[Rfam]
RNA: Small nucleolar RNA snoR2/U65
Organism: Dendrobium catenatum
RNA sequence: UGCCCAAUGCCACGUUAUCUGUAGCUUAGUGCAUUGACUGGUAAUGCUAUGAUUGGGCACAUACUGAACUGUUUUAUUGUGUUUCACAUUUUUAUAGGAAUCUUUGGAUUUCAUUAUUGAUGAUCCAUGGAGCCGUUUUUGUGAUUACAUUC
Numbered sequence: 001u002g003c004c005c006a007a008u009g010c011c012a013c014g015u016u017a018u019c020u021g022u023a024g025c026u027u028a029g030u031g032c033a034u035u036g037a038c039u040g041g042u043a044a045u046g047c048u049a050u051g052a053u054u055g056g057g058c059a060c061a062u063a064c065u066g067a068a069c070u071g072u073u074u075u076a077u078u079g080u081g082u083u084u085c086a087c088a089u090u091u092u093u094a095u096a097g098g099a100a101u102c103u104u105u106g107g108a109u110u111u112c113a114u115u116a117u118u119g120a121u122g123a124u125c126c127a128u129g130g131a132g133c134c135g136u137u138u139u140u141g142u143g144a145u146u147a148c149a150u151u152c
Base pairs, nucleotide, nucleotide: 002058003057004056005055006054007053008052009050013046014045015044016043017042018041021038022037024032025031084144085143086142087141088140097134098133102130103129106126107125108124109123110122